[Rfam]
RNA sequence: GGUCAUGAGUUCCAGCGCAUAGCCCCGGCUUGCUGGACGGCAACCCUCCAACCGCGGUGGGGUGCCCCGGGUGAGCGACCUGGUCGACGUCAACCGACGCCGACAAGCGCGGGUC
Dot-bracket structure: ((((....(.((((((....((......)).)))))))(((..(((.((......))..))).)))..........))))..((((.((((....)))).))))...........
Numbered sequence: 001g002g003u004c005a006u007g008a009g010u011u012c013c014a015g016c017g018c019a020u021a022g023c024c025c026c027g028g029c030u031u032g033c034u035g036g037a038c039g040g041c042a043a044c045c046c047u048c049c050a051a052c053c054g055c056g057g058u059g060g061g062g063u064g065c066c067c068c069g070g071g072u073g074a075g076c077g078a079c080c081u082g083g084u085c086g087a088c089g090u091c092a093a094c095c096g097a098c099g100c101c102g103a104c105a106a107g108c109g110c111g112g113g114u115c
Stems, first nucleotide, its partner, number of pairs: 001080004009038001011037006021030002039066003044062003048057002083104004088099004